The family of this 100-nucleotide RNA sequence from Myotis myotis is "Vault RNA".
Rfam classes the family as a non-coding RNA gene.
This family of RNAs are found as part of the enigmatic vault ribonucleoprotein complex.
The family's consensus secondary structure is taken from published work.
RNA sequence: GGGCUGGCCUUAGCUCAGCGGUUCCUUCUAGUCAAGCCUUUGCCAACCACUCUUGCUGGUGAGGGUGGUUUAAGACCUGUGGGCACCCCCCAGCCUUUUU
Numbered sequence: 001g002g003g004c005u006g007g008c009c010u011u012a013g014c015u016c017a018g019c020g021g022u023u024c025c026u027u028c029u030a031g032u033c034a035a036g037c038c039u040u041u042g043c044c045a046a047c048c049a050c051u052c053u054u055g056c057u058g059g060u061g062a063g064g065g066u067g068g069u070u071u072a073a074g075a076c077c078u079g080u081g082g083g084c085a086c087c088c089c090c091c092a093g094c095c096u097u098u099u100u
Base pairs, nucleotide, nucleotide: 002095003094004093005092006091007090013084014083015082016081018080019079020078021077026074027073030070